Small Cajal body specific RNA 8: a 131-nucleotide sequence from Cryptotermes secundus. Its family is annotated with Cajal body, nucleolus and RNA processing in the Gene Ontology.
RNA sequence: AGGGAGAAGUGAUACACAGGUGUCUGUAAACUGUUAGUCACUUGUCACUUUUCUCCCAACAUGAAUAUGUGCUUUCUGAUGACUGUAAUGUGUUGAGAUUUGAAUUACAGACAGAUACGGGGCAUACAGUG
Numbered sequence: 001a002g003g004g005a006g007a008a009g010u011g012a013u014a015c016a017c018a019g020g021u022g023u024c025u026g027u028a029a030a031c032u033g034u035u036a037g038u039c040a041c042u043u044g045u046c047a048c049u050u051u052u053c054u055c056c057c058a059a060c061a062u063g064a065a066u067a068u069g070u071g072c073u074u075u076c077u078g079a080u081g082a083c084u085g086u087a088a089u090g091u092g093u094u095g096a097g098a099u100u101u102g103a104a105u106u107a108c109a110g111a112c113a114g115a116u117a118c119g120g121g122g123c124a125u126a127c128a129g130u131g
Stems, first nucleotide, its partner, number of pairs: 002057006016045004024037003069125007083110003088105002091102001
About the family: scaRNAs are a specific class of small nuclear RNAs which localise to the Cajal bodies and guide the modification of RNA polymerase II transcribed spliceosomal RNAs U1, U2, U4, U5 and U12. Pairs were carried over by alignment from the consensus structure, which is taken from published work. The source organism's lineage runs through Eukaryota, Blattodea, Blattoidea, Kalotermitidae and Cryptotermes. The match comes from Rfam's covariance-model search (63 bits). It is annotated as a small Cajal body RNA.